[Rfam]
RNA sequence: AUUCAUCCGUUGGGGUGCCGUGAAAGGCUGAGAAGUUUUAUAAACUAACCCAUCGAACCUGAUACGGGUAAUACCGGCGAAGGGAACGGUGAUCUUCUUGUG
Numbered sequence: 001a002u003u004c005a006u007c008c009g010u011u012g013g014g015g016u017g018c019c020g021u022g023a024a025a026g027g028c029u030g031a032g033a034a035g036u037u038u039u040a041u042a043a044a045c046u047a048a049c050c051c052a053u054c055g056a057a058c059c060u061g062a063u064a065c066g067g068g069u070a071a072u073a074c075c076g077g078c079g080a081a082g083g084g085a086a087c088g089g090u091g092a093u094c095u096u097c098u099u100g101u102g
Stems, first nucleotide, its partner, number of pairs: 007089004011052004017028003035045004058083003065076003
RNA: TPP riboswitch aptamer (THI element)